[Rfam]
RNA sequence: AUGUCCUCUGGGGUUCCUUCAAAGCACUUCAGUAGGGCCAUUUUCCAGCCUCGGAUGUCAUCAGCCCUCACUGAAGUGUUUGGGGGAACUCCGGGUGGCAU
Numbered sequence: 001a002u003g004u005c006c007u008c009u010g011g012g013g014u015u016c017c018u019u020c021a022a023a024g025c026a027c028u029u030c031a032g033u034a035g036g037g038c039c040a041u042u043u044u045c046c047a048g049c050c051u052c053g054g055a056u057g058u059c060a061u062c063a064g065c066c067c068u069c070a071c072u073g074a075a076g077u078g079u080u081u082g083g084g085g086g087a088a089c090u091c092c093g094g095g096u097g098g099c100a101u
Base pairs, nucleotide, nucleotide: 005097007095008094009093011091012090013089014088015087016086017085018084019083020082022081023080024079025078026077027076028075029074030073031072032071033070035068036067
The record is a 101-nucleotide RNA sequence from Ensete ventricosum, which matches "mir-395 microRNA precursor family" in Rfam. Pairs were carried over by alignment from the consensus structure, which was predicted with PFOLD. From the family's description: mir-395 was identified in both Arabidopsis thaliana and Oryza sativa computationally and was later experimentally verified. mir-395 is thought to target mRNAs coding for ATP sulphurylases. On this family, see Jones-Rhoades and Bartel, Mol Cell 2004: "Computational Identification of Plant MicroRNAs and Their Targets, Including a Stress-Induced miRNA".